The family of this 84-nucleotide RNA from Esox lucius is "Small nucleolar RNA SNORD35". About the family: U35 is a C/D box snoRNA located in intron 6 of ribosomal protein L13A and intron 3 of ribosomal protein S11 in humans and at homologous positions in mouse and chicken ribosomal protein genes. The family is grouped with related families in Rfam's "SNORD35 clan". Rfam links the family to the GO terms nucleolus and RNA processing.
Nucleotides: 084
Base pairs, nucleotide, nucleotide: 001079002078003077004076
Number, partner (000 for none) and nucleotide at each position: 001079u002078g003077c004076a005000a006000g007000u008000g009000a010000u011000g012000u013000u014000u015000u016000u017000c018000u019000c020000a021000c022000g023000a024000u025000g026000g027000u028000c029000u030000u031000c032000c033000a034000a035000g036000c037000c038000u039000u040000a041000u042000g043000g044000u045000u046000g047000u048000g049000a050000c051000g052000a053000a054000a055000c056000u057000g058000c059000u060000a061000u062000g063000g064000c065000a066000a067000c068000c069000a070000a071000a072000c073000u074000g075000a076004u077003g078002c079001a080000g081000u082000c083000c084000u